[Rfam]
RNA sequence: CAUGGAAUCACGCUUAGUUUUCAGAUACAGAAUCUGGAAAGCGGGGGAACCAGUAUUAAUGGGGCGAAUCACUUGAAUUCGAGUGUAGGGUACCAUCUUACCCGAGUCCGUCAGCUAACCUCGUCAGCAGUGGAUGGGUCUUGU
Numbered sequence: 001c002a003u004g005g006a007a008u009c010a011c012g013c014u015u016a017g018u019u020u021u022c023a024g025a026u027a028c029a030g031a032a033u034c035u036g037g038a039a040a041g042c043g044g045g046g047g048a049a050c051c052a053g054u055a056u057u058a059a060u061g062g063g064g065c066g067a068a069u070c071a072c073u074u075g076a077a078u079u080c081g082a083g084u085g086u087a088g089g090g091u092a093c094c095a096u097c098u099u100a101c102c103c104g105a106g107u108c109c110g111u112c113a114g115c116u117a118a119c120c121u122c123g124u125c126a127g128c129a130g131u132g133g134a135u136g137g138g139u140c141u142u143g144u
Base pairs, nucleotide, nucleotide: 012128013127014126018040019039020038021037022036023035024034025033026032041124042123043122044121045120046119051061052060062109063108064107070085071084072083073082088103089102090101091100
A member of the RNA family "c-di-AMP riboswitch aptamer (ydaO/yuaA leader)" from Paenibacillus sp. TCA20, 144 nucleotides long.